[Rfam]
RNA sequence: AAAAAUUUUAAAAAAACAACUCGUAUAAUUUCGGAAAUAUGGUCCGAAAGUUUCUACCAAACGACCGUAAAUCGUUUGACUACGAGGAUUGCUCCUCGUAUC
Numbered sequence: 001a002a003a004a005a006u007u008u009u010a011a012a013a014a015a016a017c018a019a020c021u022c023g024u025a026u027a028a029u030u031u032c033g034g035a036a037a038u039a040u041g042g043u044c045c046g047a048a049a050g051u052u053u054c055u056a057c058c059a060a061a062c063g064a065c066c067g068u069a070a071a072u073c074g075u076u077u078g079a080c081u082a083c084g085a086g087g088a089u090u091g092c093u094c095c096u097c098g099u100a101u102c
Stems, first nucleotide, its partner, number of pairs: 020086006029049007058078007

The record is a 102-nucleotide RNA sequence from Anoxybacillus flavithermus, which matches "Purine riboswitch aptamer" in Rfam. Taxonomically the source falls in Anoxybacillus (Bacteria, Bacillota, Bacilli, Caryophanales). A search with the family's covariance model found it, with a score of 94 bits.